[Rfam]
RNA sequence: CGGCCAUGUGGCCGUAAAUAUGCACCCCGCAGGUACCGCAGACCGCUGCUUGCAUGGCGCAGGUUUCGGCAUUCGCUUGCAUUUCAUUGCCGGUGCCUAAGCGGCUAUUGGAUGCCGAUUGCAAGCCGUGCGGGGUGCCCAUGAAAUCCGAAGAGCGG
Dot-bracket structure: ((((......)))).......((((((((..(((((((((....((.....))..((.((((((..........)))))).))....))).))))))...(((((...(........)......))))).))))))))....................
RNA: RT-2 RNA